[Rfam]
RNA sequence: GGGGAGAGACUUAGAAUCCCCGUGAGCCGCGUGUGAAUAGCGGUGUCUUUGGCCGGGCAUCGUGGUUCGUGAAUC
Numbered sequence: 001g002g003g004g005a006g007a008g009a010c011u012u013a014g015a016a017u018c019c020c021c022g023u024g025a026g027c028c029g030c031g032u033g034u035g036a037a038u039a040g041c042g043g044u045g046u047c048u049u050u051g052g053c054c055g056g057g058c059a060u061c062g063u064g065g066u067u068c069g070u071g072a073a074u075c
Stems, first nucleotide, its partner, number of pairs: 001021005034069005040063009